RNA sequence: GUCGGGUACGGGGAUAUGACCCCGAAGACCUACAUCGGUAUGUUCGUUGGUGCGCUGUGUGCGUUGGCCGGUGUGUUGACGAUCGCCCUGCCCGUACCCGUCAUCGUCAGCAAC
Numbered sequence: 001g002u003c004g005g006g007u008a009c010g011g012g013g014a015u016a017u018g019a020c021c022c023c024g025a026a027g028a029c030c031u032a033c034a035u036c037g038g039u040a041u042g043u044u045c046g047u048u049g050g051u052g053c054g055c056u057g058u059g060u061g062c063g064u065u066g067g068c069c070g071g072u073g074u075g076u077u078g079a080c081g082a083u084c085g086c087c088c089u090g091c092c093c094g095u096a097c098c099c100g101u102c103a104u105c106g107u108c109a110g111c112a113a114c
Base pairs, nucleotide, nucleotide: 001114002113004111008107009106010105011104013102014101015100018097021094037077038076039075040074050062051061
This 114-nucleotide sequence from Anopheles darlingi belongs to the Rfam family "Potassium channel RNA editing signal". It is annotated as a cis-regulatory element. The family's consensus secondary structure is taken from published work. About the family: This family represents a group of sequences related to the human potassium channel Kv1.1 hairpin element which directs the efficient modification of an adenosine to inosine by an adenosine deaminase acting on RNA (ADAR). The ADAR modification causes an isoleucine/valine recoding event which lies in the ion-conducting pore of the potassium channel. NCBI's taxonomy places the organism under Eukaryota, Eumetazoa, Culicomorpha, Culicidae, argyritarsis series.